[Rfam]
The family of this 86-nucleotide RNA sequence from endosymbiont of Galathealinum brachiosum is "c-di-GMP-I riboswitch aptamer". GEMM was predicted in a large-scale screen for bacterial structured RNA regulatory elements. Genes associated with GEMM are involved in a diverse array of functions, including chemotaxis regulation, signal transduction, secretion and chitin. The base pairs follow the family's consensus structure, which is taken from published work.
RNA sequence: AUCAAUUUUUGGCAAACUUGUUCGAAAGACAAGGGCGUAAAGCCACCAGUCUAAGGAUGAAAAUCUAGGAUAGUGGGGUUGCUGCA
Numbered sequence: 001a002u003c004a005a006u007u008u009u010u011g012g013c014a015a016a017c018u019u020g021u022u023c024g025a026a027a028g029a030c031a032a033g034g035g036c037g038u039a040a041a042g043c044c045a046c047c048a049g050u051c052u053a054a055g056g057a058u059g060a061a062a063a064u065c066u067a068g069g070a071u072a073g074u075g076g077g078g079u080u081g082c083u084g085c086a
Stems, first nucleotide, its partner, number of pairs: 012038002017033004022029002041080004046076003049071003056065003
Dot-bracket structure: ...........((...((((.((....))))))...))..((((.((((((....(((....)))...)))..)))))))......